[Rfam]
RNA: DUF805b RNA
Organism: Polaribacter glomeratus
RNA sequence: AACGGGUAAGCCGAAAACCGAAAUAGAGUAGGCA
Numbered sequence: 001a002a003c004g005g006g007u008a009a010g011c012c013g014a015a016a017a018c019c020g021a022a023a024u025a026g027a028g029u030a031g032g033c034a
Stems, first nucleotide, its partner, number of pairs: 003020003010033003